[Rfam]
RNA sequence: UGGAUAGAUUAUUGUAUUCGACUGUAUUCACGACGUAAAACAGGGGAUUACACUAUUUUAAACGAAAAGUGAAUUAAUUAACAUAAUAGACUCCU
Number, nucleotide and partner (000 for none) at each position: 001u000002g094003g093004a092005u000006a000007g000008a000009u089010u088011a087012u086013u085014g084015u083016a000017u081018u080019c000020g079021a078022c000023u076024g075025u000026a074027u073028u072029c071030a070031c069032g000033a000034c064035g063036u062037a059038a058039a057040a056041c000042a054043g053044g000045g000046g000047a000048u000049u000050a000051c000052a000053c043054u042055a000056u040057u039058u038059u037060a000061a000062a036063c035064g034065a000066a000067a000068a000069g031070u030071g029072a028073a027074u026075u024076a023077a000078u021079u020080a018081a017082c000083a015084u014085a013086a012087u011088a010089g009090a000091c000092u004093c003094c002095u000
RNA: MIR6152 microRNA precursor family